[Rfam]
RNA sequence: CUGUCUCCUGCUUCAUCAGUGUUUGGACGGAACAU
Numbered sequence: 001c002u003g004u005c006u007c008c009u010g011c012u013u014c015a016u017c018a019g020u021g022u023u024u025g026g027a028c029g030g031a032a033c034a035u
Base pairs, nucleotide, nucleotide: 002034003033004032006031007030008029010028012027013026014025015024017021
RNA: Iron response element I
Organism: Myotis davidii